Annotation:
ZMP/ZTP riboswitch aptamer (pfl RNA motif): a 79-nucleotide RNA sequence from Janibacter cremeus. The source organism's lineage runs through Bacteria, Actinomycetota, Micrococcales, Intrasporangiaceae and Janibacter. The base pairs follow the family's consensus structure, which is taken from published work.
RNA sequence: UUGGGGCCUCACGACUGGCGAAGGUGGGUCACCACCGGGGAGUGAACGUCGGGGUGCAUCGCCCGCCUGGGUGCGCUCA
Number, nucleotide and partner (000 for none) at each position: 001u000002u000003g000004g050005g049006g000007c000008c000009u045010c044011a043012c042013g000014a000015c039016u038017g067018g066019c065020g064021a000022a000023g000024g035025u034026g033027g032028g000029u000030c000031a000032c027033c026034a025035c024036c000037g000038g016039g015040g000041a000042g012043u011044g010045a009046a000047c000048g000049u005050c004051g000052g000053g000054g000055u000056g074057c073058a072059u071060c070061g000062c000063c000064c020065g019066c018067c017068u000069g000070g060071g059072u058073g057074c056075g000076c000077u000078c000079a000
The match comes from Rfam's covariance-model search (48 bits).